[Rfam]
Nucleotides: 088
Base pairs, nucleotide, nucleotide: 017070018069019068020067021066022065024063025062028059029058030057031056034054035053036052037051
Number, partner (000 for none) and nucleotide at each position: 001000u002000u003000g004000u005000g006000a007000c008000u009000g010000c011000u012000g013000a014000g015000c016000u017070u018069c019068c020067c021066u022065u023000u024063g025062u026000c027000a028059u029058c030057c031056u032000a033000u034054g035053c036052c037051u038000g039000g040000a041000a042000g043000u044000c045000a046000a047000a048000a049000u050000g051037g052036g053035g054034c055000a056031g057030g058029g059028a060000c061000a062025g063024c064000a065022a066021a067020g068019g069018g070017a071000u072000g073000a074000u075000c076000a077000a078000c079000c080000g081000u082000c083000a084000c085000c086000u087000c088000c